[Rfam]
RNA sequence: AAUAAAAUCAUGCUGAAUUCUCUAAGAAGCGGGGGAACCACUUCCCAGGGGUGAAUUUCUAAUAAGAAAAGGGGCAGCUAUCCCUAACCCGACAGCUAACUCCGUAAGCAUUAAGCCACAAGUA
Numbered sequence: 001a002a003u004a005a006a007a008u009c010a011u012g013c014u015g016a017a018u019u020c021u022c023u024a025a026g027a028a029g030c031g032g033g034g035g036a037a038c039c040a041c042u043u044c045c046c047a048g049g050g051g052u053g054a055a056u057u058u059c060u061a062a063u064a065a066g067a068a069a070a071g072g073g074g075c076a077g078c079u080a081u082c083c084c085u086a087a088c089c090c091g092a093c094a095g096c097u098a099a100c101u102c103c104g105u106a107a108g109c110a111u112u113a114a115g116c117c118a119c120a121a122g123u124a
Base pairs, nucleotide, nucleotide: 011110012109013108014107018028019027020026029105030104031103032102033101034100039048049090050089051088057068058067059066060065071084072083073082074081
This 124-nucleotide RNA from Desulforamulus aquiferis belongs to the Rfam family "c-di-AMP riboswitch aptamer (ydaO/yuaA leader)". Taxonomically the source falls in Desulforamulus (Bacteria, Bacillati, Bacillota, Peptococcaceae). The pairing is the family consensus, mapped onto this sequence. On this family, see Barrick et al., Proc Natl Acad Sci U S A 2004: "New RNA motifs suggest an expanded scope for riboswitches in bacterial genetic control".